[Rfam]
RNA: azaaromatic riboswitch aptamer (yjdF RNA)
Organism: [Clostridium] innocuum
RNA sequence: UAAUAACGGAAUAAAAACACAGUCUGGUUGGUAGUCCAGACGCAAUGAGAAUUGUCAGUAACCUGCCUCCUUGGUUGUCCGUUUCCUUAUGAAGUAUA
Numbered sequence: 001u002a003a004u005a006a007c008g009g010a011a012u013a014a015a016a017a018c019a020c021a022g023u024c025u026g027g028u029u030g031g032u033a034g035u036c037c038a039g040a041c042g043c044a045a046u047g048a049g050a051a052u053u054g055u056c057a058g059u060a061a062c063c064u065g066c067c068u069c070c071u072u073g074g075u076u077g078u079c080c081g082u083u084u085c086c087u088u089a090u091g092a093a094g095u096a097u098a
Base pairs, nucleotide, nucleotide: 006088008086009085010084011083022041023040024039025038026037027036042055043054044053045052046051065075066074067073